[Rfam]
RNA: t44 RNA
RNA sequence: CGAAAGGCAAAUCGAAAACACACAAACGCUGAAAUCCUCUGCUUGGGUGCGCGUAAAACGCGUUGAGUAGGGCAGGCGUUUGGAGGCUUAAC
Numbered sequence: 001c002g003a004a005a006g007g008c009a010a011a012u013c014g015a016a017a018a019c020a021c022a023c024a025a026a027c028g029c030u031g032a033a034a035u036c037c038u039c040u041g042c043u044u045g046g047g048u049g050c051g052c053g054u055a056a057a058a059c060g061c062g063u064u065g066a067g068u069a070g071g072g073c074a075g076g077c078g079u080u081u082g083g084a085g086g087c088u089u090a091a092c
Base pairs, nucleotide, nucleotide: 023082024081025080026079027078028077029076030075036072037071039070040069041068042067043066044065049063050062051061052060053059